[Rfam]
RNA sequence: AUGUAAGUUUAAGCGCCAGAACUAUUCUGAACGAAAUAGAGUAGUUGACGAGGUGGAGGUUCAUCGAAUAUCGGCGGAUGCCUCCCGGUUGAAUCACAGCCGUAAGCUUAUCCGAAAACAAAGAGGCAACUUUUUGCACAAACGGUUAAGUAUGAUUUCAA
Numbered sequence: 001a002u003g004u005a006a007g008u009u010u011a012a013g014c015g016c017c018a019g020a021a022c023u024a025u026u027c028u029g030a031a032c033g034a035a036a037u038a039g040a041g042u043a044g045u046u047g048a049c050g051a052g053g054u055g056g057a058g059g060u061u062c063a064u065c066g067a068a069u070a071u072c073g074g075c076g077g078a079u080g081c082c083u084c085c086c087g088g089u090u091g092a093a094u095c096a097c098a099g100c101c102g103u104a105a106g107c108u109u110a111u112c113c114g115a116a117a118a119c120a121a122a123g124a125g126g127c128a129a130c131u132u133u134u135u136g137c138a139c140a141a142a143c144g145g146u147u148a149a150g151u152a153u154g155a156u157u158u159c160a161a
Stems, first nucleotide, its partner, number of pairs: 020046008029037001055085005064074004086102006106151005112145001119136007
The family of this 161-nucleotide sequence from Schinkia azotoformans is "glmS glucosamine-6-phosphate activated ribozyme aptamer".
It scores 116 bits against the family's covariance model.
The base pairs follow the family's consensus structure, which is taken from published work.